Annotation:
t44 RNA: a 95-nucleotide RNA from Celerinatantimonas diazotrophica. A search with the family's covariance model found it, with a score of 68 bits. Pairs were carried over by alignment from the consensus structure, which was predicted with LocARNA. NCBI's taxonomy places the organism under Bacteria, Pseudomonadati, Pseudomonadota, Celerinatantimonadaceae, Celerinatantimonas. This family consists of a number of bacterial RNA genes of between 135 and 170 bases in length.
Nucleotides: 095
Stems, first nucleotide, its partner, number of pairs: 023085008035076002041069003048066005
Number, partner (000 for none) and nucleotide at each position: 001000g002000u003000g004000u005000u006000c007000u008000u009000u010000a011000a012000c013000u014000u015000a016000u017000a018000a019000c020000a021000c022000a023085c024084a025083c026082a027081c028080a029079u030078c031000g032000a033000g034000a035076c036075c037000u038000a039000c040000u041069c042068c043067g044000g045000g046000g047000u048066g049065c050064u051063g052062c053000u054000u055000u056000g057000a058000a059000u060000g061000a062052g063051u064050a065049g066048u067043c068042g069041g070000u071000c072000a073000g074000u075036g076035g077000g078030g079029a080028u081027g082026u083025g084024u085023g086000g087000a088000g089000g090000c091000c092000u093000a094000a095000c